mir-22 microRNA precursor family: an 87-nucleotide RNA from Chanos chanos. For this family Rfam cites "Identification of novel genes coding for small expressed RNAs" (Lagos-Quintana et al., Science, 2001). The match comes from Rfam's covariance-model search (67 bits). Rfam links the family to the GO terms RISC complex and miRNA-mediated post-transcriptional gene silencing.

[Rfam]
Nucleotides: 087
Base pairs, nucleotide, nucleotide: 005084007082010080011079012078017073018072019071020070021069022068026063027062028061030060032058033057034056035055036054
Number, partner (000 for none) and nucleotide at each position: 001000g002000g003000c004000u005084g006000a007082c008000c009000c010080a011079c012078a013000a014000a015000a016000g017073u018072u019071c020070u021069u022068c023000a024000c025000u026063g027062g028061c029000a030060g031000u032058c033057u034056u035055u036054a037000u038000g039000g040000c041000u042000c043000u044000a045000u046000u047000u048000g049000c050000a051000a052000u053000g054036u055035a056034a057033a058032g059000c060030u061028g062027c063026c064000a065000g066000u067000u068022g069021a070020a071019g072018a073017a074000c075000u076000a077000u078012u079011g080010u081000g082007g083000c084005u085000a086000g087000c
The organism belongs to Chanos, within Eukaryota. The family's consensus secondary structure was predicted with RNAalifold.